RNA: FMN riboswitch aptamer (RFN element)
RNA sequence: AUAUGCUAGCGAGGAUGGGUGCAAUUCCCUACCGGUGGUAAUAGUCCACAAGUCCGCAGGGACAGAUCUGAUGUAAUGCAGAACCGACAGUAAAGUCUGGAAGGGAGUUAGAGCUA
Numbered sequence: 001a002u003a004u005g006c007u008a009g010c011g012a013g014g015a016u017g018g019g020u021g022c023a024a025u026u027c028c029c030u031a032c033c034g035g036u037g038g039u040a041a042u043a044g045u046c047c048a049c050a051a052g053u054c055c056g057c058a059g060g061g062a063c064a065g066a067u068c069u070g071a072u073g074u075a076a077u078g079c080a081g082a083a084c085c086g087a088c089a090g091u092a093a094a095g096u097c098u099g100g101a102a103g104g105g106a107g108u109u110a111g112a113g114c115u116a
Stems, first nucleotide, its partner, number of pairs: 004113001006111005017029003031096002033086002035049004044084002052063003067082004088099003